[Rfam]
RNA sequence: ACUGGUCAGUGAUGAAUCUCUUAUCUGGUGGACAUGCUUUGGAUGACACUUGCGGAUAUGGGGCUGAGACCAGUC
Numbered sequence: 001a002c003u004g005g006u007c008a009g010u011g012a013u014g015a016a017u018c019u020c021u022u023a024u025c026u027g028g029u030g031g032a033c034a035u036g037c038u039u040u041g042g043a044u045g046a047c048a049c050u051u052g053c054g055g056a057u058a059u060g061g062g063g064c065u066g067a068g069a070c071c072a073g074u075c
Base pairs, nucleotide, nucleotide: 001074002073003072004071005070

Shown here is a 75-nucleotide RNA from Monodelphis domestica, a member of the family "Small nucleolar RNA SNORD99".
The family is grouped with related families in Rfam's "SNORD58 clan".
Rfam's curators put it in the seed alignment.
It is annotated as a C/D-box small nucleolar RNA.
Pairs were carried over by alignment from the consensus structure, which was predicted with RNAalifold.